[Rfam]
RNA sequence: ACUUGUGCUGAGGACCUGUUUUCUAAGCUACACACUGGUGACUUGUUCCUUACUCUUCUGUCUAGGGGAAAGUCCCCAGACCUACGUCAAAGAGUACCAUGUGGCUACACAAAUUGACAUUCCCAUUUUCCAUAUAAAGUCUACAGGAAGCUAAUAGGCAUAGCAGGAGCAGCAUGGUGAAGGGGCGUCCCAUUCAGCUCUUCUAGUUACACAGGCAGUGCACCUUCCCACAUGCACCAACUACACAGGGCUUGUUCUCAGUGUGGC
Numbered sequence: 001a002c003u004u005g006u007g008c009u010g011a012g013g014a015c016c017u018g019u020u021u022u023c024u025a026a027g028c029u030a031c032a033c034a035c036u037g038g039u040g041a042c043u044u045g046u047u048c049c050u051u052a053c054u055c056u057u058c059u060g061u062c063u064a065g066g067g068g069a070a071a072g073u074c075c076c077c078a079g080a081c082c083u084a085c086g087u088c089a090a091a092g093a094g095u096a097c098c099a100u101g102u103g104g105c106u107a108c109a110c111a112a113a114u115u116g117a118c119a120u121u122c123c124c125a126u127u128u129u130c131c132a133u134a135u136a137a138a139g140u141c142u143a144c145a146g147g148a149a150g151c152u153a154a155u156a157g158g159c160a161u162a163g164c165a166g167g168a169g170c171a172g173c174a175u176g177g178u179g180a181a182g183g184g185g186c187g188u189c190c191c192a193u194u195c196a197g198c199u200c201u202u203c204u205a206g207u208u209a210c211a212c213a214g215g216c217a218g219u220g221c222a223c224c225u226u227c228c229c230a231c232a233u234g235c236a237c238c239a240a241c242u243a244c245a246c247a248g249g250g251c252u253u254g255u256u257c258u259c260a261g262u263g264u265g266g267c
Base pairs, nucleotide, nucleotide: 003266004265005264006263007262008261009260010259011258015215016214017213018212019211022066023065024064025063027061028060037051038050040048041047070253071252072251074250075249076248086098089095099114100113102111103110116188122184123183124182126181127180128179130177131176132175133174141172142171144169218237219236220235221234222233
A member of the RNA family "RNase MRP" from Homo sapiens, 267 nucleotides long.
About the family: RNase MRP is an enzymatically active ribonucleoprotein with two distinct roles in eukaryotes. In mitochondria it plays a direct role in the initiation of mitochondrial DNA replication. In the nucleus it is involved in precursor rRNA processing, where it cleaves the internal transcribed spacer 1 between 18S and 5.8S rRNAs. Despite distinct functions, RNase MRP has been shown to be evolutionarily related to RNase P. Like eukaryotic RNase P, RNase MRP is not catalytically active without associated protein subunits.
The source organism's lineage runs through Eukaryota, Bilateria, Eutheria, Catarrhini and Homo.